[Rfam]
RNA: Alphaproteobacteria transfer-messenger RNA
Organism: Salipiger mucosus
RNA sequence: CCCCUUGAACACCGGAAGACCAGCGCCUAUCUUAGCGAUGUCCCGCAAGGGACUAUGGGCAUAAACGCGCAUGAAAUAAGCGGAUCGGACCCGGGGGCGGUACCCGGCGGCUCCACCAUAAACCCGUCGUUGGGGGGAUCAUGGGGCCGAAACAGGAUCGACGAACGUGUAAAGAUGUGGCUUUGUCCCGGUGAGAUACCACCGUUAUCGGUUCAUUAAGCAUAAUUGCCAACGACAAUCGUGCUCCGGUUGCAGUUGCCGCGUAAGCGGUAACAAGACCGAAACUUAAGCCCUUGCGCCUAGCAGCGUAAGGCGGGGUUCGCAGGCACCUGGCAACAGAAGCCUGCAUU
Numbered sequence: 001c002c003c004c005u006u007g008a009a010c011a012c013c014g015g016a017a018g019a020c021c022a023g024c025g026c027c028u029a030u031c032u033u034a035g036c037g038a039u040g041u042c043c044c045g046c047a048a049g050g051g052a053c054u055a056u057g058g059g060c061a062u063a064a065a066c067g068c069g070c071a072u073g074a075a076a077u078a079a080g081c082g083g084a085u086c087g088g089a090c091c092c093g094g095g096g097g098c099g100g101u102a103c104c105c106g107g108c109g110g111c112u113c114c115a116c117c118a119u120a121a122a123c124c125c126g127u128c129g130u131u132g133g134g135g136g137g138a139u140c141a142u143g144g145g146g147c148c149g150a151a152a153c154a155g156g157a158u159c160g161a162c163g164a165a166c167g168u169g170u171a172a173a174g175a176u177g178u179g180g181c182u183u184u185g186u187c188c189c190g191g192u193g194a195g196a197u198a199c200c201a202c203c204g205u206u207a208u209c210g211g212u213u214c215a216u217u218a219a220g221c222a223u224a225a226u227u228g229c230c231a232a233c234g235a236c237a238a239u240c241g242u243g244c245u246c247c248g249g250u251u252g253c254a255g256u257u258g259c260c261g262c263g264u265a266a267g268c269g270g271u272a273a274c275a276a277g278a279c280c281g282a283a284a285c286u287u288a289a290g291c292c293c294u295u296g297c298g299c300c301u302a303g304c305a306g307c308g309u310a311a312g313g314c315g316g317g318g319u320u321c322g323c324a325g326g327c328a329c330c331u332g333g334c335a336a337c338a339g340a341a342g343c344c345u346g347c348a349u350u
Stems, first nucleotide, its partner, number of pairs: 040053005057188005067181002069178004081167002085164003091107005108149007189204004195214002198212003316331004322347006